[Rfam]
The record is a 123-nucleotide RNA sequence from Alteribacter lacisalsi, which matches "epsC RNA" in Rfam. The source organism's lineage runs through Bacteria, Bacillati, Caryophanales, Bacillaceae and Alteribacter. It scores 101 bits against the family's covariance model. Rfam classes the family as a cis-regulatory element.
RNA sequence: AGGUAAUGCCUCCUCACCUUUAUCAACGGAGGUACUCGGCCACGCUGUGGGUUCGUUCAUUAUAGUGAACAACCUUAGACAUUUGUUGUCACCGGUGGGGUGUGAGGUCAGGUUGAAUGCCUG
Numbered sequence: 001a002g003g004u005a006a007u008g009c010c011u012c013c014u015c016a017c018c019u020u021u022a023u024c025a026a027c028g029g030a031g032g033u034a035c036u037c038g039g040c041c042a043c044g045c046u047g048u049g050g051g052u053u054c055g056u057u058c059a060u061u062a063u064a065g066u067g068a069a070c071a072a073c074c075u076u077a078g079a080c081a082u083u084u085g086u087u088g089u090c091a092c093c094g095g096u097g098g099g100g101u102g103u104g105a106g107g108u109c110a111g112g113u114u115g116a117a118u119g120c121c122u123g
Stems, first nucleotide, its partner, number of pairs: 001019004007034007035106004039101003043097004049075005055070005078090004109123005